[Rfam]
RNA sequence: AUCGAACCAUUUGUUUUGCUACUUGGUGGUUAAGAGGCAACCGAAAGGUUUAGCCUAGUGAGCGUUGAGGCUUGCAACACUGUCAAAUUGCGGGGACGUCCUAAAGCUUUUGCGACCAAGCAUUAAUGGAAACAUUGGUGUGGCCGAGUUAAUAGCCCUGGGUAUGGUAAAACUGCAAAAGAUGUUACAAUGGAUAAUCCGCAGCCAAGUCCUAAGGACUCCUCUAUUUUUGGGGGUCUAUGGAUGCAGUUCACAGACUAAAUGGCAGUGGGUGUGUAUUGAGCUGGGAUUACUAGUUCUACAUGCUUAAGAUAUAGUCGGUCCCGCCGUGAAAACGGACU
Dot-bracket structure: (((((.................)))))........(.....)...................................(((((.((...((((((....(((..........................................................................................)))...))))))((...((((....(((((((........)))))))...))))...))...[.[[[[[..)).))))).(((((((.....................)))))))........]]]]]]......((((....))))...
The record is a 341-nucleotide sequence from Rhizoctonia solani, which matches "Group I catalytic intron" in Rfam. It scores 112 bits against the family's covariance model. From the family's description: Group I catalytic introns are large self-splicing ribozymes. They catalyse their own excision from mRNA, tRNA and rRNA precursors in a wide range of organisms. The core secondary structure consists of 9 paired regions (P1-P9). Its family is annotated with Group I intron splicing in the Gene Ontology.